[Rfam]
RNA: Group II catalytic intron D1-D4-3
Organism: Thauera terpenica
RNA sequence: GUGAGGGUGACCGGGCGUGGGAAGGAAGCGUGGAGCAUAAGCUGCGAGCCGAUGUACAAGAAUCGGAUAGAAAGCACUGCUGAGCAGGGCGAGCGGGCACGAAACCGCGAAGCUCUCGUGAUCAAAGCGAAGCGGCGUAAAUCCGGCGGUUGUGCAGCGAAGGAGUCCUGC
Dot-bracket structure: ((..((....))..))...........(((.(...(....(((((((((((...........((((((.....((..((((..(..((((..((((........))))...))))............)..))))..))..))))))))))).))))))....)...).)))
Numbered sequence: 001g002u003g004a005g006g007g008u009g010a011c012c013g014g015g016c017g018u019g020g021g022a023a024g025g026a027a028g029c030g031u032g033g034a035g036c037a038u039a040a041g042c043u044g045c046g047a048g049c050c051g052a053u054g055u056a057c058a059a060g061a062a063u064c065g066g067a068u069a070g071a072a073a074g075c076a077c078u079g080c081u082g083a084g085c086a087g088g089g090c091g092a093g094c095g096g097g098c099a100c101g102a103a104a105c106c107g108c109g110a111a112g113c114u115c116u117c118g119u120g121a122u123c124a125a126a127g128c129g130a131a132g133c134g135g136c137g138u139a140a141a142u143c144c145g146g147c148g149g150u151u152g153u154g155c156a157g158c159g160a161a162g163g164a165g166u167c168c169u170g171c
Stems, first nucleotide, its partner, number of pairs: 001016002005012002028171003032167001036163001041158006047151005063146006074138002078134004084128001087115004093108004